[Rfam]
RNA: Molybdenum/Tungsten riboswitch aptamer (Moco RNA motif)
RNA sequence: CCCCCGUGACAUCUCCAAGCCCGGCCGCCUGUGCCCCCGUGGGUAUGGCAACCGGGCCGUGGUUUCCGCGCUUGCGCGGGGGUCACCGGGUCGGACGGGAAACGGUCCGACCUCCCUGUAUCGGACUGGAGUGACAACAUGCAGACC
Dot-bracket structure: ..(..(......((((..((((((..(((...((((....))))..)))..)))))).(((((((((((......))))))))))).(((((((((.(....).)))))))))((.......))...))))......)..)......